RNA sequence: UUGGUUAGAAAUCUACCUAGGUUAUCGCCGCAACGGUGAUAACACAGGAGGCUCGCGACGCCGGCAGCGGACUCCAACGGCAGACCAUUUCUGCCUGAUCUCACCAUGAGAUCUACAGGACAUAAACAGUCAAC
Dot-bracket structure: ....................(((((((((.....)))))))))......((.((((..........)))).)).....((((((.....)))))).((((((.....)))))).....................
Numbered sequence: 001u002u003g004g005u006u007a008g009a010a011a012u013c014u015a016c017c018u019a020g021g022u023u024a025u026c027g028c029c030g031c032a033a034c035g036g037u038g039a040u041a042a043c044a045c046a047g048g049a050g051g052c053u054c055g056c057g058a059c060g061c062c063g064g065c066a067g068c069g070g071a072c073u074c075c076a077a078c079g080g081c082a083g084a085c086c087a088u089u090u091c092u093g094c095c096u097g098a099u100c101u102c103a104c105c106a107u108g109a110g111a112u113c114u115a116c117a118g119g120a121c122a123u124a125a126a127c128a129g130u131c132a133a134c
Stems, first nucleotide, its partner, number of pairs: 021043009050073002053070004079095006097113006